[Rfam]
RNA sequence: AAGUAGUGUGACAUGCCCGUUUGAGAUAUACUCUGAAGUAUGUUUAUUAUUUAUUUAAUUGCUUUGGGAUAACGGGAUGUUACAUAAAU
Dot-bracket structure: .(.(.(((((((((.((((((.................................................))))))))))))))).).)
The record is an 89-nucleotide sequence from Medicago truncatula, which matches "MIR2617 microRNA precursor family" in Rfam. Rfam 15.1 lists 1,174 matches to the family in 2 species. Its family is annotated with miRNA-mediated post-transcriptional gene silencing and RISC complex in the Gene Ontology. A search with the family's covariance model found it, with a score of 60 bits.